Nucleotides: 185
Base pairs, nucleotide, nucleotide: 018146019145020144021141022140023139024138025137026136027135030114031113032112033111034110035109036108040080041079043077044076045075046074047073050071051070052069053067054066055065056064057063058062082107083106084105085104086103087102089100090099091098092097115134116133118131119130120129121128152172153171154170155169156168157167
Number, partner (000 for none) and nucleotide at each position: 001000u002000c003000u004000a005000u006000g007000c008000u009000c010000a011000a012000a013000u014000c015000a016000g017000c018146g019145g020144u021141c022140c023139c024138c025137u026136c027135u028000u029000u030114g031113g032112g033111g034110c035109c036108c037000a038000a039000a040080g041079c042000a043077c044076c045075a046074g047073u048000g049000a050071c051070g052069g053067u054066c055065a056064g057063g058062g059000u060000u061000u062058u063057c064056c065055u066054g067053g068000u069052c070051u071050g072000a073047g074046c075045u076044g077043g078000c079041g080040c081000c082107c083106g084105g085104c086103u087102a088000a089100a090099g091098c092097c093000u094000u095000c096000g097092g098091g099090c100089u101000a102087u103086g104085g105084c106083c107082g108036g109035g110034g111033c112032c113031c114030c115134g116133g117000c118131g119130a120129a121128c122000u123000g124000u125000c126000c127000g128121g129120u130119u131118c132000u133116c134115c135027g136026g137025a138024g139023g140022g141021g142000u143000g144020g145019c146018c147000c148000u149000c150000c151000a152172c153171c154170u155169c156168g157167a158000u159000c160000c161000c162000g163000u164000c165000c166000c167157u168156c169155g170154a171153g172152g173000a174000a175000c176000g177000a178000c179000u180000c181000g182000a183000u184000g185000a

A member of the RNA family "psaA RNA" from Synechococcus sp. CC9311, 185 nucleotides long. It is one of the family's seed sequences. By type it is a cis-regulatory element.